Rfam assigns this 69-nucleotide RNA to the family "mir-192/215 microRNA precursor family". It is one of the family's seed sequences. Rfam's curators write: This family represents the human microRNA (miRNA) precursors mir-192 and mir-215.
Nucleotides: 069
Stems, first nucleotide, its partner, number of pairs: 005069002008066001010064002013061004018055003022051006029044001031042001
Number, partner (000 for none) and nucleotide at each position: 001000c002000c003000a004000g005069g006068a007000a008066a009000a010064u011063g012000a013061c014060c015059u016058a017000u018055g019054a020053a021000u022051u023050g024049a025048c026047a027046g028000a029044c030000u031042g032000u033000c034000u035000u036000u037000u038000g039000c040000a041000u042031u043000u044029g045000c046027c047026u048025g049024u050023c051022a052000c053020u054019u055018c056000u057000a058016u059015a060014g061013g062000c063011c064010a065000a066008u067000a068006u069005u